[Rfam]
RNA sequence: AUGCGAAGGUCCCAGCAGGGAGGCGAGUUACUCUAAUUGUUGAGGCCUCUCUAACGAUCAAAUUCGAUACCCUUCGCAUAGUUAUUUGCCGAAUCGUAAGAUGCCCAAAUUUUUCCUUCAUUUUGGUGCAUCUGGAACCCUCGGCUAUAUUUUU
Numbered sequence: 001a002u003g004c005g006a007a008g009g010u011c012c013c014a015g016c017a018g019g020g021a022g023g024c025g026a027g028u029u030a031c032u033c034u035a036a037u038u039g040u041u042g043a044g045g046c047c048u049c050u051c052u053a054a055c056g057a058u059c060a061a062a063u064u065c066g067a068u069a070c071c072c073u074u075c076g077c078a079u080a081g082u083u084a085u086u087u088g089c090c091g092a093a094u095c096g097u098a099a100g101a102u103g104c105c106c107a108a109a110u111u112u113u114u115c116c117u118u119c120a121u122u123u124u125g126g127u128g129c130a131u132c133u134g135g136a137a138c139c140c141u142c143g144g145c146u147a148u149a150u151u152u153u154u
Stems, first nucleotide, its partner, number of pairs: 003077007011020003025051003031044003035040001088145005100132002103129002105126005

A member of the RNA family "Small nucleolar RNA snoR145" from Glycine soja, 154 nucleotides long.
Pairs were carried over by alignment from the consensus structure, which was predicted with mfold.
The match comes from Rfam's covariance-model search (129 bits).
The family's RNA type in Rfam is H/ACA-box small nucleolar RNA.